[Rfam]
Nucleotides: 120
Base pairs, nucleotide, nucleotide: 001120002119003118004117005116006115007114008113013041015040016039017038021031022030023029025095027093028092042087043086044085045084047083048082049080050079051078091112096109097108098107099106100105
Number, partner (000 for none) and nucleotide at each position: 001120a002119c003118u004117u005116u006115a007114u008113u009000a010000a011000g012000a013041a014000u015040g016039g017038u018000g019000g020000a021031g022030g023029g024000a025095c026000u027093g028092g029023c030022c031021c032000u033000a034000u035000g036000a037000a038017a039016c040015c041013u042087a043086g044085c045084a046000a047083c048082c049080u050079a051078c052000g053000a054000a055000a056000u057000a058000u059000a060000a061000a062000a063000u064000u065000a066000u067000u068000u069000u070000a071000u072000a073000a074000a075000u076000a077000a078051g079050u080049g081000u082048g083047g084045u085044g086043c087042u088000a089000a090000a091112u092028c093027c094000u095025g096109c097108a098107a099106g100105c101000u102000g103000a104000u105100g106099c107098u108097u109096g110000g111000c112091a113008a114007a115006u116005a117004a118003g119002g120001u